The record is a 110-nucleotide RNA from Paenactinomyces guangxiensis, which matches "SAM riboswitch aptamer (S box leader)" in Rfam.
The source organism's lineage runs through Bacteria, Bacillota, Bacilli, Caryophanales and Paenactinomyces.
Pairs were carried over by alignment from the consensus structure, which is taken from published work.
A search with the family's covariance model found it, with a score of 94 bits.
About the family: The SAM riboswitch is found upstream of a number of genes which code for proteins involved in methionine or cysteine biosynthesis in Gram-positive bacteria.
RNA sequence: CUCUUAUCCAGAGAGGUGUAGGGACAGGCCCGAUGAUACCUCGGCAACCAUCCGUUCUGUGAACGGAAAGGUGCCAAUUCCUGCAGGACAUGAGUUCUGGCAGAUGAGAG
Numbered sequence: 001c002u003c004u005u006a007u008c009c010a011g012a013g014a015g016g017u018g019u020a021g022g023g024a025c026a027g028g029c030c031c032g033a034u035g036a037u038a039c040c041u042c043g044g045c046a047a048c049c050a051u052c053c054g055u056u057c058u059g060u061g062a063a064c065g066g067a068a069a070g071g072u073g074c075c076a077a078u079u080c081c082u083g084c085a086g087g088a089c090a091u092g093a094g095u096u097c098u099g100g101c102a103g104a105u106g107a108g109a110g
Stems, first nucleotide, its partner, number of pairs: 001110008013042005021031003025083004043075004048071002051067004079102001084099006